[Rfam]
Nucleotides: 114
Stems, first nucleotide, its partner, number of pairs: 011104001014100006023091011
Number, partner (000 for none) and nucleotide at each position: 001000c002000u003000a004000a005000c006000a007000g008000a009000g010000u011104u012000u013000a014100u015099u016098g017097g018096c019095a020000u021000u022000c023091u024090g025089u026088c027087c028086a029085c030084c031083u032082c033081c034000c035000u036000u037000c038000a039000g040000c041000a042000g043000a044000g045000u046000a047000c048000c049000a050000u051000g052000u053000u054000c055000c056000u057000c058000u059000c060000u061000c062000u063000c064000u065000c066000u067000a068000a069000c070000u071000u072000c073000u074000c075000g076000c077000u078000g079000a080000u081033g082032g083031a084030g085029g086028u087027g088026g089025a090024c091023a092000u093000a094000c095019u096018g097017c098016c099015a100014a101000c102000u103000g104011a105000g106000c107000u108000c109000u110000g111000u112000u113000g114000g